[Rfam]
RNA sequence: CAGGCCGGCCGGGCGGCCGCGUGACGCCGUACCUCGUGUACGACGUACCGAGGAAGGUCCGGACUCCACUGGGCGAGGUGGUGGGUAACACCCACCCGAGGAGACUCGCGGGACAGUGCCACAGAGACAGACCGCCAGCGGCUCCGAUCCGUCGGAGUGCGGGUAAGGGUGAAACGGUGGUGUAAGAGACCACCAGCACCCCGGGUGACCGGGGUGGCUGGGUAAACCCCACUCGGAGCAAGGCCAAGAGGGCCGACUGUAAUCAGUCGGCCUGCGCGAGCGAUCGAGGGUGGCCCGCCCGAGCUCGCGGGUAGGCCGCAGGAGGGCGUCGGCAACGGCGCUCGUAGAUGGAUGGUCGCCGCGCCGGGUUCUGCGAACCCGGCGCACAGAAUCCGGCCUACAGGCCGGCCUGUCCC
Dot-bracket structure: ((((((((((((((((((.((..(((.((((.......)))).)))..))....[[[.[[[[[((((...[[[[..(((((((((.....)))))(((((....)))).)((...(((((...........(((((.(((.................))).)))..)).......((((((.......)))))).(((((((((....)))))))).)..)))..)))))))).))))...((((..........................................((((.]]]])))).............))))......((((((((....))))))))..........)))))))...............................]]]]]]]].).))))))))))....

The family of this 416-nucleotide sequence from a Propionibacteriales bacterium is "Bacterial RNase P class A". The source organism's lineage runs through Bacteria, Bacillati, Actinomycetota, Actinomycetes and Propionibacteriales. It is annotated as a ribozyme.